The family of this 77-nucleotide sequence from Pan troglodytes is "mir-1285 microRNA precursor family". The family has 5 seed sequences and 264 matches in Rfam 15.1.
RNA sequence: AUCGGGUCUCACUGUGUUGCUCAAGCUGGUCUUGAAUUCCUGAUAAGACCAGCUUGAGCAACACAGUGAGACCCGAU
Numbered sequence: 001a002u003c004g005g006g007u008c009u010c011a012c013u014g015u016g017u018u019g020c021u022c023a024a025g026c027u028g029g030u031c032u033u034g035a036a037u038u039c040c041u042g043a044u045a046a047g048a049c050c051a052g053c054u055u056g057a058g059c060a061a062c063a064c065a066g067u068g069a070g071a072c073c074c075g076a077u
Stems, first nucleotide, its partner, number of pairs: 007071008019059007032052003